Shown here is a 92-nucleotide RNA from Kineococcus radiotolerans, a member of the family "Selenocysteine transfer RNA". Pairs were carried over by alignment from the consensus structure, which is taken from published work.
[Rfam]
RNA sequence: GGAGGCGUACGGGUGCCUGGUGGCCCCCGCGGUCUUCAACACCGACGUGACCGAGCACCUCGGUCAGGUGGGUUCGAUUCCCAUCCGCCUCC
Numbered sequence: 001g002g003a004g005g006c007g008u009a010c011g012g013g014u015g016c017c018u019g020g021u022g023g024c025c026c027c028c029g030c031g032g033u034c035u036u037c038a039a040c041a042c043c044g045a046c047g048u049g050a051c052c053g054a055g056c057a058c059c060u061c062g063g064u065c066a067g068g069u070g071g072g073u074u075c076g077a078u079u080c081c082c083a084u085c086c087g088c089c090u091c092c
Stems, first nucleotide, its partner, number of pairs: 001092007009084001012027002015024003030044004048066005069083004